This 156-nucleotide RNA sequence from Limnoglobus roseus belongs to the Rfam family "c-di-AMP riboswitch aptamer (ydaO/yuaA leader)".
RNA sequence: AGGUAGUAGAAGCCGAGUUCCCGGAUCACCAUCGGGAAACGGGGGACCCAAUUGGGUCGGGCGCAAGGCCGACCUGGGGGCGAACGCGGGCAACCGCGAGGGUACGUUCAAGCCCUAGCCCGUCAGCUAACCUCGUAGGCGAGCCGCGGCAUGGUG
Dot-bracket structure: ...........(((...(((((((.......)))))))((((((....(...........................)(((.....((((....))))..((((........))))...))).........)))))).)))................

The match comes from Rfam's covariance-model search (63 bits). The organism belongs to Limnoglobus, within Bacteria.